This 57-nucleotide RNA from Streptomyces sp. CNH099 belongs to the Rfam family "L17-Actino-Proteobacteria ribosomal protein leader". Pairs were carried over by alignment from the consensus structure, which is taken from published work. Taxonomically the source falls in Streptomycetaceae (Bacteria, Bacillati, Actinomycetota, Kitasatosporales).
[Rfam]
RNA sequence: UCGGGGGGCCACCGCCCCCCGAACCCCGAUCACCGGUACCUGACACGGCCGGUGCGG
Numbered sequence: 001u002c003g004g005g006g007g008g009c010c011a012c013c014g015c016c017c018c019c020c021g022a023a024c025c026c027c028g029a030u031c032a033c034c035g036g037u038a039c040c041u042g043a044c045a046c047g048g049c050c051g052g053u054g055c056g057g
Base pairs, nucleotide, nucleotide: 001022002021003020004019005018006017007016008015009014026057027056028055031054032053033052034051035050036049037048

Overview
A reference for the family is Eckert and Weinberg (2020), "Discovery of 20 novel ribosomal leader candidates in bacteria and archaea", BMC Microbiol. Rfam classes the family as a cis-regulatory leader. The sequence is in the family's curated seed alignment.